The record is a 139-nucleotide RNA from Sphenodon punctatus, which matches "Small nucleolar RNA SNORA9" in Rfam. Gene Ontology terms of the family: nucleolus and RNA processing. The family has 36 seed sequences and 1,202 matches in Rfam 15.1. The family is grouped with related families in Rfam's "SNORA9 clan". Rfam describes the family as follows. ACA9 is a member of the H/ACA class of snoRNA that guide the sites of modification of uridines to pseudouridines. Rfam classes the family as an H/ACA-box small nucleolar RNA. The source organism's lineage runs through Eukaryota, Chordata, Sauria, Sphenodontidae and Sphenodon. A search with the family's covariance model found it, with a score of 110 bits.

[Rfam]
RNA sequence: CCGCAAGCCUUCCAGCAUGACUGGGCCUACCCCCAUGGCCCUGCUCACUCCUGUAGCGCUUGCAAGAGCAAUCCUGAGAUGGUUUGAGGCCUCGCUCUGCUUCCACGUUGGAGCAAGGUUAUAGAAAUCCCAGACAUUG
Numbered sequence: 001c002c003g004c005a006a007g008c009c010u011u012c013c014a015g016c017a018u019g020a021c022u023g024g025g026c027c028u029a030c031c032c033c034c035a036u037g038g039c040c041c042u043g044c045u046c047a048c049u050c051c052u053g054u055a056g057c058g059c060u061u062g063c064a065a066g067a068g069c070a071a072u073c074c075u076g077a078g079a080u081g082g083u084u085u086g087a088g089g090c091c092u093c094g095c096u097c098u099g100c101u102u103c104c105a106c107g108u109u110g111g112a113g114c115a116a117g118g119u120u121a122u123a124g125a126a127a128u129c130c131c132a133g134a135c136a137u138u139g
Base pairs, nucleotide, nucleotide: 003063004062005061006060007059008058018047019046020045023041024040025039026038027037075132076131078129079128090118091117092116094114095113097111098110099109